[Rfam]
The record is a 238-nucleotide sequence from Scopulibacillus darangshiensis, which matches "BsrG" in Rfam. Gene Ontology terms of the family: toxin activity and autolysis. Rfam's curators write: bsrE, bsrG and bsrH pair through intermolecular interactions with antisense sRNAs. They form type I toxin/antitoxin system that includes an mRNA encoding for a short, toxic peptide (bsrE, bsrG and bsrH) and an antitoxin that is comprised of an antisense RNA. bsrG encodes a 39-amino-acid toxin, and the 180 nucleotide antisense sRNA called SR4 acts as the antitoxin (they overlap by 123 nucleotides). SR4 interaction with the 3'UTR of bsrG RNA promotes bsrG degradation and inhibits its translation. BsrG interferes with cell envelope biosynthesis, causes membrane invaginations and delocalisation of the cell wall synthesis and initiates autolysis. bsrE RNA encodes 30 amino-acid toxin peptide. Pairs were carried over by alignment from the consensus structure, which was predicted with WAR. It scores 78 bits against the family's covariance model. Rfam classes the family as a small RNA.
RNA sequence: UACAAUGGGUAUCUUAUAGGGGGAGGGCUCACUCAAGCGUUGGAAAAGGGGUGGUGCUCGUGACAGUAUUUGAGGCGUUAUCACUUAUGGUAGCCUUUGGCACACUUGUUGUCAUACUGUCAGAAUCAAAACAUAAAUAGACCUCCCUUAAUUUAUAAUUCGGGAGGUCUAUGCUGCAGAGCUCACCUCUAAAAGAGGUUUUGCCAUUGUAUCUUGCCGCGGGGGUGCCUCCCUGCGG
Numbered sequence: 001u002a003c004a005a006u007g008g009g010u011a012u013c014u015u016a017u018a019g020g021g022g023g024a025g026g027g028c029u030c031a032c033u034c035a036a037g038c039g040u041u042g043g044a045a046a047a048g049g050g051g052u053g054g055u056g057c058u059c060g061u062g063a064c065a066g067u068a069u070u071u072g073a074g075g076c077g078u079u080a081u082c083a084c085u086u087a088u089g090g091u092a093g094c095c096u097u098u099g100g101c102a103c104a105c106u107u108g109u110u111g112u113c114a115u116a117c118u119g120u121c122a123g124a125a126u127c128a129a130a131a132c133a134u135a136a137a138u139a140g141a142c143c144u145c146c147c148u149u150a151a152u153u154u155a156u157a158a159u160u161c162g163g164g165a166g167g168u169c170u171a172u173g174c175u176g177c178a179g180a181g182c183u184c185a186c187c188u189c190u191a192a193a194a195g196a197g198g199u200u201u202u203g204c205c206a207u208u209g210u211a212u213c214u215u216g217c218c219g220c221g222g223g224g225g226u227g228c229c230u231c232c233c234u235g236c237g238g
Stems, first nucleotide, its partner, number of pairs: 001211005007205002011201001019149005026142001028140002033054003038050001040048002062121007076089002099113004161176003185199004217238009